[Rfam]
RNA sequence: GGAUGAAAGCGAACGACCAUGCCUACGCAAGCUCCGCCCGGAUGGCCUCCGGGAUGACCUCGCGUGCCCGCCGACCGGAACCCUGCGUUGCUGGGUAAGCGGAGACGUGCGUGUUCG
Numbered sequence: 001g002g003a004u005g006a007a008a009g010c011g012a013a014c015g016a017c018c019a020u021g022c023c024u025a026c027g028c029a030a031g032c033u034c035c036g037c038c039c040g041g042a043u044g045g046c047c048u049c050c051g052g053g054a055u056g057a058c059c060u061c062g063c064g065u066g067c068c069c070g071c072c073g074a075c076c077g078g079a080a081c082c083c084u085g086c087g088u089u090g091c092u093g094g095g096u097a098a099g100c101g102g103a104g105a106c107g108u109g110c111g112u113g114u115u116c117g
Stems, first nucleotide, its partner, number of pairs: 031114002034111001035107002037104001038102002040076002043073004051068002054065003077100001082095004086090001

Shown here is a 117-nucleotide sequence from Pseudoxanthomonas helianthi, a member of the family "Xanthomonadaceae sRNA Xoo5". Rfam classes the family as a small RNA. The source organism's lineage runs through Bacteria, Gammaproteobacteria, Lysobacterales, Lysobacteraceae and Pseudoxanthomonas.